[Rfam]
RNA sequence: UGGUGAUGUCUCCCUACCGUUAUCGAUGGAGGCACUCGGUCAUGCUGUGGGUCUAGGACCUUAGACGCAAGUCGUCAGUAGGAUGAUGUGAGGACGGGUUAGAUGCCCA
Numbered sequence: 001u002g003g004u005g006a007u008g009u010c011u012c013c014c015u016a017c018c019g020u021u022a023u024c025g026a027u028g029g030a031g032g033c034a035c036u037c038g039g040u041c042a043u044g045c046u047g048u049g050g051g052u053c054u055a056g057g058a059c060c061u062u063a064g065a066c067g068c069a070a071g072u073c074g075u076c077a078g079u080a081g082g083a084u085g086a087u088g089u090g091a092g093g094a095c096g097g098g099u100u101a102g103a104u105g106c107c108c109a
Base pairs, nucleotide, nucleotide: 001019002018003017004016007034008033009032010031011030012029013028035092036091037090038089039087040086041085042084043083045081046080049061050060051059052058053057064076065075066074067073096108097107098106099105

Rfam assigns this 109-nucleotide RNA sequence from Neobacillus vireti to the family "epsC RNA". Rfam classes the family as a cis-regulatory element. The base pairs follow the family's consensus structure, which is taken from published work. A search with the family's covariance model found it, with a score of 107 bits.